[Rfam]
RNA sequence: GGAGAGAGCCGCCUCACGUCUGCCCACGCUUGUGAAGUUCGAGCUCGUGCUCGUUCAACUGUUCGGGCUAUCUCGUGAGGUCGAUGUGCGGCCACCCUGGCUCCUACACGUGCUCGAACACUGCGGCCUGUCGGUGUGCCGCACAUCGCUCUCCACCUC
Numbered sequence: 001g002g003a004g005a006g007a008g009c010c011g012c013c014u015c016a017c018g019u020c021u022g023c024c025c026a027c028g029c030u031u032g033u034g035a036a037g038u039u040c041g042a043g044c045u046c047g048u049g050c051u052c053g054u055u056c057a058a059c060u061g062u063u064c065g066g067g068c069u070a071u072c073u074c075g076u077g078a079g080g081u082c083g084a085u086g087u088g089c090g091g092c093c094a095c096c097c098u099g100g101c102u103c104c105u106a107c108a109c110g111u112g113c114u115c116g117a118a119c120a121c122u123g124c125g126g127c128c129u130g131u132c133g134g135u136g137u138g139c140c141g142c143a144c145a146u147c148g149c150u151c152u153c154c155a156c157c158u159c
Stems, first nucleotide, its partner, number of pairs: 001154006013079005018068005025061002036055002041052004083147010093136004110121003
The record is a 159-nucleotide sequence from Solimonas marina, which matches "Xanthomonadaceae sRNA sX15" in Rfam. The family's RNA type in Rfam is small RNA. It scores 56 bits against the family's covariance model. For this family Rfam cites "Genome-wide transcriptome analysis of the plant pathogen Xanthomonas identifies sRNAs with putative virulence functions" (Schmidtke et al., Nucleic Acids Res, 2011).